The record is a 45-nucleotide RNA sequence from Helcobacillus massiliensis, which matches "L31-Actinobacteria ribosomal protein leader" in Rfam. Taxonomically the source falls in Helcobacillus (Bacteria, Actinomycetes, Micrococcales, Dermabacteraceae). It scores 45 bits against the family's covariance model. The family's RNA type in Rfam is cis-regulatory leader. The family is grouped with related families in Rfam's "Ribosomal Protein L31 Leader clan".

RNA sequence: ACGGUUCUGGUUCACGAGCCGCCCCUGCGACUCGACCCAGCGACC
Numbered sequence: 001a002c003g004g005u006u007c008u009g010g011u012u013c014a015c016g017a018g019c020c021g022c023c024c025c026u027g028c029g030a031c032u033c034g035a036c037c038c039a040g041c042g043a044c045c
Stems, first nucleotide, its partner, number of pairs: 003045003007040004015034004020029003